RNA: FMN riboswitch aptamer (RFN element)
RNA sequence: ACUUAUUCUCAGGGCGGGGUGCAAUUCCCCACCGGCGGUCAGCCGGCCCGCGGUGAUCAGCUCCGCGCCGGCACAGCCCGCGAGCGCCUGCCGUGGCGGCAGGGUCAGCAGAUCCGGUGCAAUUCCGGAGCCGACGGUCAUAGUCCGGAUGAAAGAGGAUAAGG
Numbered sequence: 001a002c003u004u005a006u007u008c009u010c011a012g013g014g015c016g017g018g019g020u021g022c023a024a025u026u027c028c029c030c031a032c033c034g035g036c037g038g039u040c041a042g043c044c045g046g047c048c049c050g051c052g053g054u055g056a057u058c059a060g061c062u063c064c065g066c067g068c069c070g071g072c073a074c075a076g077c078c079c080g081c082g083a084g085c086g087c088c089u090g091c092c093g094u095g096g097c098g099g100c101a102g103g104g105u106c107a108g109c110a111g112a113u114c115c116g117g118u119g120c121a122a123u124u125c126c127g128g129a130g131c132c133g134a135c136g137g138u139c140a141u142a143g144u145c146c147g148g149a150u151g152a153a154a155g156a157g158g159a160u161a162a163g164g
Stems, first nucleotide, its partner, number of pairs: 003162008017029003031144002033133002035081004084109002113129005135147003